This 79-nucleotide sequence from Candidatus Vecturithrix granuli belongs to the Rfam family "c-di-GMP-I riboswitch aptamer".
Taxonomically the source falls in Candidatus Vecturithrix (Bacteria, Candidatus Vecturitrichia, Candidatus Vecturitrichales, Candidatus Vecturitrichaceae).
The base pairs follow the family's consensus structure, which is taken from published work.
RNA sequence: UCAAGCUCAAGCCAAACCUGUCGUGAGGCAGGGACAGAAAGCCGCGGAUCUUUAUCACAAAGAAAGCCGGGUUGCCUUG
Dot-bracket structure: ...........(....((((((....))))))....)..((((.(((.(((((.....)))))...)))))))......